A member of the RNA family "Small nucleolar RNA U49" from Senna tora, 67 nucleotides long.
Rfam links the family to the GO terms RNA processing and nucleolus.
Clan: SNORD49 clan.
NCBI's taxonomy places the organism under Eukaryota, Spermatophyta, fabids, Fabaceae, Senna.
[Rfam]
Nucleotides: 067
Stems, first nucleotide, its partner, number of pairs: 014061001032051001034049004
Number, partner (000 for none) and nucleotide at each position: 001000u002000c003000c004000c005000u006000a007000u008000g009000a010000g011000g012000a013000a014061g015000a016000u017000a018000a019000c020000c021000c022000a023000a024000a025000u026000u027000g028000a029000u030000a031000g032051g033000a034049a035048g036047u037046g038000c039000c040000g041000u042000a043000u044000g045000a046037c047036a048035c049034u050000c051032c052000a053000a054000a055000c056000a057000g058000c059000a060000g061014c062000g063000a064000c065000u066000a067000c